[Rfam]
RNA sequence: UGCCGGGACCUACGCGACGUAAUCCCGCGAACCCCGCCAGGUCCGGAAGGAAGCAACGGUAACGGGCCAGUAUGUGCGCAGUAGGCUCCCCGGUACUC
Numbered sequence: 001u002g003c004c005g006g007g008a009c010c011u012a013c014g015c016g017a018c019g020u021a022a023u024c025c026c027g028c029g030a031a032c033c034c035c036g037c038c039a040g041g042u043c044c045g046g047a048a049g050g051a052a053g054c055a056a057c058g059g060u061a062a063c064g065g066g067c068c069a070g071u072a073u074g075u076g077c078g079c080a081g082u083a084g085g086c087u088c089c090c091c092g093g094u095a096c097u098c
Stems, first nucleotide, its partner, number of pairs: 004092004009085005015076001017075005024066004034059003042051003
The record is a 98-nucleotide sequence from Terriglobus albidus, which matches "Bacterial small signal recognition particle RNA" in Rfam. The family's RNA type in Rfam is non-coding RNA gene. The match comes from Rfam's covariance-model search (67 bits). The family's consensus secondary structure is taken from published work. The signal recognition particle (SRP) is a universally conserved ribonucleoprotein involved in the co-translational targeting of proteins to membranes.